RNA sequence: UUAUGAUGAAGUUGGAACCGACAUAUAUGCAGAAGAAUUGGCUUCUGCGUUUCUACCAGGACACCGUAAUGUCCGGACUAUGCGGGAAAGCGACUUAAUG
Numbered sequence: 001u002u003a004u005g006a007u008g009a010a011g012u013u014g015g016a017a018c019c020g021a022c023a024u025a026u027a028u029g030c031a032g033a034a035g036a037a038u039u040g041g042c043u044u045c046u047g048c049g050u051u052u053c054u055a056c057c058a059g060g061a062c063a064c065c066g067u068a069a070u071g072u073c074c075g076g077a078c079u080a081u082g083c084g085g086g087a088a089a090g091c092g093a094c095u096u097a098a099u100g
Base pairs, nucleotide, nucleotide: 018086019085022082023081024080025079029048030047031046032045033044034043035042057076059074060073061072062071063070

Record summary: A member of the RNA family "Purine riboswitch aptamer" from Planomicrobium sp. YIM 101495, 100 nucleotides long. The family's consensus secondary structure is taken from published work. The organism belongs to Planomicrobium, within Bacteria. Rfam's curators write: Riboswitches are metabolite binding domains within certain messenger RNAs that serve as precision sensors for their corresponding targets. Allosteric rearrangement of mRNA structure is mediated by ligand binding, and this results in modulation of gene expression.